[Rfam]
RNA sequence: AGUGAGGGUAGAGGUGCAAUUACCAUUAGUAUGUUAGUCGAGGAAAAUGAGAACCAUUGAAGCUAACAAAAAGGGGUACUUGCCGAAGCUUAUAAGUGACUCAUUUCCUUAUAGAGCUGGGACUGUUCUGAAUAAGACCAGUACUGUCAUAUAGCUGGAAGCUAUAUGGAGGGCUAUCUCACAC
Numbered sequence: 001a002g003u004g005a006g007g008g009u010a011g012a013g014g015u016g017c018a019a020u021u022a023c024c025a026u027u028a029g030u031a032u033g034u035u036a037g038u039c040g041a042g043g044a045a046a047a048u049g050a051g052a053a054c055c056a057u058u059g060a061a062g063c064u065a066a067c068a069a070a071a072a073g074g075g076g077u078a079c080u081u082g083c084c085g086a087a088g089c090u091u092a093u094a095a096g097u098g099a100c101u102c103a104u105u106u107c108c109u110u111a112u113a114g115a116g117c118u119g120g121g122a123c124u125g126u127u128c129u130g131a132a133u134a135a136g137a138c139c140a141g142u143a144c145u146g147u148c149a150u151a152u153a154g155c156u157g158g159a160a161g162c163u164a165u166a167u168g169g170a171g172g173g174c175u176a177u178c179u180c181a182c183a184c
Stems, first nucleotide, its partner, number of pairs: 006179006016083004021078004032068007087118004091113006098106001119145002122142004127137003147169007

Shown here is a 184-nucleotide sequence from Halalkalibacter krulwichiae, a member of the family "Lysine riboswitch aptamer". Taxonomically the source falls in Halalkalibacter (Bacteria, Bacillati, Caryophanales, Bacillaceae).